[Rfam]
RNA: Small nucleolar RNA SNORD116
RNA sequence: GGAUCGAUGAUGAGUCCCACAAAGAAAUAAAACAUUCCUUGGAAAAACUGAACAAAAUGAGUGAAAGCUCAUACCGUCACUCUCAUCGGAAGUGAAGUCU
Numbered sequence: 001g002g003a004u005c006g007a008u009g010a011u012g013a014g015u016c017c018c019a020c021a022a023a024g025a026a027a028u029a030a031a032a033c034a035u036u037c038c039u040u041g042g043a044a045a046a047a048c049u050g051a052a053c054a055a056a057a058u059g060a061g062u063g064a065a066a067g068c069u070c071a072u073a074c075c076g077u078c079a080c081u082c083u084c085a086u087c088g089g090a091a092g093u094g095a096a097g098u099c100u
Stems, first nucleotide, its partner, number of pairs: 001100004033063005039055003